RNA sequence: UAGACCAGAAGAGGCGCGCCGCCCAGGCAGUAUGUCAGAGGAUCCGUAUCCGGUGACGGCAUAUCAGGGGGAGCGGCGCCGAGGCAACAAACAUGCGGAGUGUUUGUUAUGCCGACCACAGGGGCUGAAUCCUCUGGGUUGUCACCGUAGCGUAGCGUUCGUGAUGAAUGUUUCACAAGGUGGGGCGCUUCUGGCUGA
Numbered sequence: 001u002a003g004a005c006c007a008g009a010a011g012a013g014g015c016g017c018g019c020c021g022c023c024c025a026g027g028c029a030g031u032a033u034g035u036c037a038g039a040g041g042a043u044c045c046g047u048a049u050c051c052g053g054u055g056a057c058g059g060c061a062u063a064u065c066a067g068g069g070g071g072a073g074c075g076g077c078g079c080c081g082a083g084g085c086a087a088c089a090a091a092c093a094u095g096c097g098g099a100g101u102g103u104u105u106g107u108u109a110u111g112c113c114g115a116c117c118a119c120a121g122g123g124g125c126u127g128a129a130u131c132c133u134c135u136g137g138g139u140u141g142u143c144a145c146c147g148u149a150g151c152g153u154a155g156c157g158u159u160c161g162u163g164a165u166g167a168a169u170g171u172u173u174c175a176c177a178a179g180g181u182g183g184g185g186c187g188c189u190u191c192u193g194g195c196u197g198a
Base pairs, nucleotide, nucleotide: 006193007192008191009190010189011188016079017078018077019076020075021074022073024071030064031063032062033061034060035059036058083113084112085111086110087107088106089105090104091103092102093101114140115139116138117137119136120135121134122133123132124131142183143182144181145180146179148177
This 198-nucleotide RNA sequence from Tatumella ptyseos belongs to the Rfam family "Lysine riboswitch aptamer".
Riboswitches are metabolite binding domains within certain messenger RNAs that serve as precision sensors for their corresponding targets.
Gene Ontology term of the family: lysine biosynthetic process.
A search with the family's covariance model found it, with a score of 86 bits.